[Rfam]
RNA sequence: UGGCGCCCAACGUGGUGGCUGGAUACUGGGGUCACAUCGUGAGGGAGACACCGGAGAAAAAGGAGUGCACUUGCUAAAUCUCAAGGAAUUCGGAGACGCGCCGUGUGAGCCUGCCGCAACCGAACCGAAAGUAAGUCAAUCCAUCAGAUCAUGGGGCAAGAAUUGAGCCAGCAUCAGAUUUAUGUGAAGCAAUUGAAAGAGGCUCUAAAGACACGAGGAGUAAAGGUUAGGACUGCGGAUUUAUUUCAUUUCUUUGAUUUUGUAAAGGAAAUUUGUCCCU
Numbered sequence: 001u002g003g004c005g006c007c008c009a010a011c012g013u014g015g016u017g018g019c020u021g022g023a024u025a026c027u028g029g030g031g032u033c034a035c036a037u038c039g040u041g042a043g044g045g046a047g048a049c050a051c052c053g054g055a056g057a058a059a060a061a062g063g064a065g066u067g068c069a070c071u072u073g074c075u076a077a078a079u080c081u082c083a084a085g086g087a088a089u090u091c092g093g094a095g096a097c098g099c100g101c102c103g104u105g106u107g108a109g110c111c112u113g114c115c116g117c118a119a120c121c122g123a124a125c126c127g128a129a130a131g132u133a134a135g136u137c138a139a140u141c142c143a144u145c146a147g148a149u150c151a152u153g154g155g156g157c158a159a160g161a162a163u164u165g166a167g168c169c170a171g172c173a174u175c176a177g178a179u180u181u182a183u184g185u186g187a188a189g190c191a192a193u194u195g196a197a198a199g200a201g202g203c204u205c206u207a208a209a210g211a212c213a214c215g216a217g218g219a220g221u222a223a224a225g226g227u228u229a230g231g232a233c234u235g236c237g238g239a240u241u242u243a244u245u246u247c248a249u250u251u252c253u254u255u256g257a258u259u260u261u262g263u264a265a266a267g268g269a270a271a272u273u274u275g276u277c278c279c280u
Base pairs, nucleotide, nucleotide: 006031007030008029012026013025014024039049040048089133091131099122100121103117104116105115140158142156144155145154147152164207165206167203168202169201214256215255216254217253218252219251220250224242225241226240227239228238265280267278268277269276